[Rfam]
RNA: mir-87 microRNA precursor family
RNA sequence: AAAUCCGCGCCUGAAUUUUGACUCAGCCUAUAUCAUAGAAGGUGAGCAAAGUCUCAGGUGUGGUUUUC
Numbered sequence: 001a002a003a004u005c006c007g008c009g010c011c012u013g014a015a016u017u018u019u020g021a022c023u024c025a026g027c028c029u030a031u032a033u034c035a036u037a038g039a040a041g042g043u044g045a046g047c048a049a050a051g052u053c054u055c056a057g058g059u060g061u062g063g064u065u066u067u068c
Stems, first nucleotide, its partner, number of pairs: 001067003005063002008060007015052005022046004027042003